[Rfam]
Annotation: A member of the RNA family "ZMP/ZTP riboswitch aptamer (pfl RNA motif)" from Ruminococcaceae bacterium CPB6, 79 nucleotides long. Pairs were carried over by alignment from the consensus structure, which is taken from published work. It scores 55 bits against the family's covariance model.
RNA sequence: UAGCAGCCAUACGACUGACGGAAGUGGAGUAUACCACAUGGAGUAUGGCCAAGAAGAGCCGACCGUCUGGGCAAGCACC
Numbered sequence: 001u002a003g004c005a006g007c008c009a010u011a012c013g014a015c016u017g018a019c020g021g022a023a024g025u026g027g028a029g030u031a032u033a034c035c036a037c038a039u040g041g042a043g044u045a046u047g048g049c050c051a052a053g054a055a056g057a058g059c060c061g062a063c064c065g066u067c068u069g070g071g072c073a074a075g076c077a078c079c
Stems, first nucleotide, its partner, number of pairs: 006049007015040001017067005024037004058072003